Source information
This 91-nucleotide sequence from Carex littledalei belongs to the Rfam family "MIR827 microRNA precursor family".
RNA sequence: AAAUGUUUUGUUGAUGGUCAUCUAAUCAUAAUUUUAUAGAAUAUUCCUUUCUAUCAAAUGCAAUGCUUAGAUGACCAUCAGCAAACAUAUU
Numbered sequence: 001a002a003a004u005g006u007u008u009u010g011u012u013g014a015u016g017g018u019c020a021u022c023u024a025a026u027c028a029u030a031a032u033u034u035u036a037u038a039g040a041a042u043a044u045u046c047c048u049u050u051c052u053a054u055c056a057a058a059u060g061c062a063a064u065g066c067u068u069a070g071a072u073g074a075c076c077a078u079c080a081g082c083a084a085a086c087a088u089a090u091u
Stems, first nucleotide, its partner, number of pairs: 005086004010082016027065003

Description:
A search with the family's covariance model found it, with a score of 70 bits. The family's consensus secondary structure was predicted with RNAalifold.